[Rfam]
RNA: Bacterial RNase P class A
Organism: Gehongia tenuis
RNA sequence: CGAGCAAGACAGAUGAUCGCGUCUUUUUGACGAGGAAAGUCCGAGCACCACAGGGCAGGGUGCUGGGUAACACCCAGUGGAGGCGACUCCAAGGAUAGUGCAACAGAGAUAUACCGCGUCCUUCGGGACGUAAGGGUGGAAAGGCGAGGUAAGAGCUCACCAACGGCUUGGCGACUUGUCCGUUCUGUAAACCCCACCUGGUGCAAGAUUGAUAGCGGAGCAUUUUGCGGCGGCCCGCCCGCUCCCAUGUAAUCGCUGGAGCCCGUUGGUAACUUCGGGCCUAGAUAGAUGAUCAUCCUAUGACAGAACUCGGCUUAUGGCUUGUCUCGCAAG
Number, nucleotide and partner (000 for none) at each position: 001c329002g328003a327004g326005c000006a000007a323008g322009a000010c320011a318012g297013a296014u295015g294016a293017u292018c291019g000020c032021g031022u030023c029024u000025u000026u000027u000028u000029g023030a022031c021032g020033a000034g000035g000036a000037a316038a315039g314040u000041c313042c312043g311044a310045g309046c203047a202048c201049c200050a000051c000052a000053g236054g235055g234056c233057a000058g199059g198060g197061u196062g195063c077064u076065g075066g074067g073068u000069a000070a000071c000072a000073c067074c066075c065076a064077g063078u092079g090080g089081a088082g087083g000084c000085g000086a000087c082088u081089c080090c079091a000092a078093g194094g193095a000096u000097a000098g192099u191100g188101c187102a186103a000104c000105a000106g000107a000108g000109a000110u000111a000112u000113a000114c135115c134116g131117c130118g129119u128120c127121c126122u000123u000124c000125g000126g121127g120128a119129c118130g117131u116132a000133a000134g115135g114136g000137u000138g000139g000140a000141a000142a000143g161144g160145c000146g158147a157148g156149g000150u000151a000152a000153g000154a000155g000156c148157u147158c146159a000160c144161c143162a000163a183164c000165g180166g179167c000168u178169u000170g175171g000172c000173g000174a000175c170176u000177u000178g168179u166180c165181c000182g000183u163184u000185c000186u102187g101188u100189a000190a000191a099192c098193c094194c093195c062196a061197c060198c059199u058200g049201g048202u047203g046204c000205a000206a000207g254208a253209u252210u000211g000212a000213u000214a000215g000216c000217g245218g244219a243220g242221c241222a000223u000224u000225u000226u000227g000228c000229g239230g238231c237232g000233g056234c055235c054236c053237g231238c230239c229240c000241g221242c220243u219244c218245c217246c000247a000248u000249g000250u000251a000252a209253u208254c207255g000256c000257u000258g000259g000260a000261g280262c279263c278264c277265g276266u000267u000268g273269g000270u000271a000272a000273c268274u000275u000276c265277g264278g263279g262280c261281c000282u000283a000284g000285a000286u000287a000288g000289a000290u000291g018292a017293u016294c015295a014296u013297c012298c000299u000300a000301u000302g000303a000304c000305a000306g000307a000308a000309c045310u044311c043312g042313g041314c039315u038316u037317a000318u011319g000320g010321c000322u008323u007324g000325u000326c004327u003328c002329g001330c000331a000332a000333g000